[Rfam]
RNA: mir-17 microRNA precursor family
Organism: Aquarana catesbeiana
RNA sequence: CAGGCUGUGCCAAAGUGCUCAUAGUGCAGGUAGCUUUUCUUCAGUUUCUACUGUAAUAUGGGCACUUACAGUACUGCCGG
Numbered sequence: 001c002a003g004g005c006u007g008u009g010c011c012a013a014a015g016u017g018c019u020c021a022u023a024g025u026g027c028a029g030g031u032a033g034c035u036u037u038u039c040u041u042c043a044g045u046u047u048c049u050a051c052u053g054u055a056a057u058a059u060g061g062g063c064a065c066u067u068a069c070a071g072u073a074c075u076g077c078c079g080g
Stems, first nucleotide, its partner, number of pairs: 004077002007074001009072002013067011025055003029052005